The record is an 84-nucleotide sequence from Aquariibacter albus, which matches "Burkholderia RNA 7 (anti-hemB)" in Rfam. It scores 54 bits against the family's covariance model. From the family's description: This RNA motif was identified by computational search in b-proteobacteria Burkholderia. Co-purified with Hfq, expression confirmed by Northern blot. The organism belongs to Aquariibacter, within Bacteria.
RNA sequence: CCCCUGCUUUCCUCCCUGAGCAGGAACCUGAACGUGUGACAGCGAACAGGUUUUCCAGCCCCGGCCCUGCCGGGGCUUUUUUCU
Numbered sequence: 001c002c003c004c005u006g007c008u009u010u011c012c013u014c015c016c017u018g019a020g021c022a023g024g025a026a027c028c029u030g031a032a033c034g035u036g037u038g039a040c041a042g043c044g045a046a047c048a049g050g051u052u053u054u055c056c057a058g059c060c061c062c063g064g065c066c067c068u069g070c071c072g073g074g075g076c077u078u079u080u081u082u083c084u
Stems, first nucleotide, its partner, number of pairs: 003024006026051004058076008